RNA: small nucleolar RNA snoR117
Organism: Eutrema salsugineum
RNA sequence: GGCCUGUGAUGUUUGAGAUUGUCCGUACCAUCUGAGAUUUUUAUUUCUCCUUGAUGAUUUGUUUCCUCUAGGUUCUGAGGCUU
Numbered sequence: 001g002g003c004c005u006g007u008g009a010u011g012u013u014u015g016a017g018a019u020u021g022u023c024c025g026u027a028c029c030a031u032c033u034g035a036g037a038u039u040u041u042u043a044u045u046u047c048u049c050c051u052u053g054a055u056g057a058u059u060u061g062u063u064u065c066c067u068c069u070a071g072g073u074u075c076u077g078a079g080g081c082u083u
Base pairs, nucleotide, nucleotide: 001082002081003080004079
Dot-bracket structure: ((((..........................................................................)))).